About this RNA: pemK RNA: a 64-nucleotide sequence. By type it is a cis-regulatory element.

RNA sequence: UUAAUGAUACUUCUGUAAUUCGCAGCUCGGCCAUAAAGAAGGCGGAGAGGUUAGAGUCCUAUGG
Numbered sequence: 001u002u003a004a005u006g007a008u009a010c011u012u013c014u015g016u017a018a019u020u021c022g023c024a025g026c027u028c029g030g031c032c033a034u035a036a037a038g039a040a041g042g043c044g045g046a047g048a049g050g051u052u053a054g055a056g057u058c059c060u061a062u063g064g
Stems, first nucleotide, its partner, number of pairs: 012061001013025004026047003030043003048060003